This 110-nucleotide sequence from Xenopus tropicalis belongs to the Rfam family "MIR2950 microRNA precursor family". Gene Ontology terms of the family: RISC complex and miRNA-mediated post-transcriptional gene silencing. The organism belongs to Silurana, within Eukaryota.
RNA sequence: CAUGGGUUUAUCCUAUAGGCUACAGCUCACCCACUGGGUUUCAUCAGCUAUUGUCCUGGCUUCAGCUUCAAACCCAGUGGGUGAGCUGUAGCCUAUAGGAUAAACCCAUG
Numbered sequence: 001c002a003u004g005g006g007u008u009u010a011u012c013c014u015a016u017a018g019g020c021u022a023c024a025g026c027u028c029a030c031c032c033a034c035u036g037g038g039u040u041u042c043a044u045c046a047g048c049u050a051u052u053g054u055c056c057u058g059g060c061u062u063c064a065g066c067u068u069c070a071a072a073c074c075c076a077g078u079g080g081g082u083g084a085g086c087u088g089u090a091g092c093c094u095a096u097a098g099g100a101u102a103a104a105c106c107c108a109u110g
Stems, first nucleotide, its partner, number of pairs: 001110039